[Rfam]
Overview:
This 125-nucleotide RNA sequence from Winogradskyella epiphytica belongs to the Rfam family "SAM riboswitch aptamer (S box leader)". The source organism's lineage runs through Bacteria, Pseudomonadati, Bacteroidota, Flavobacteriaceae and Winogradskyella. Rfam describes the family as follows. The SAM riboswitch is found upstream of a number of genes which code for proteins involved in methionine or cysteine biosynthesis in Gram-positive bacteria.
RNA sequence: UUGUUAUCAAGAAAGGUGGAGGGAUUAGACCCUUUGAAACCUUAGCAACCCUUAAACUUUUUAAGAAGGUGCUAAAUUCUACUUAAUUGUUCGAUGUAUAAAUCGAGUAAUUGGAUAGAUAACCA
Dot-bracket structure: (.((((((....(((((...(((..[[[[)))......)))))((((.((((((.......))))..))))))...(]]]]((.(.(.....................).).))..))))))).)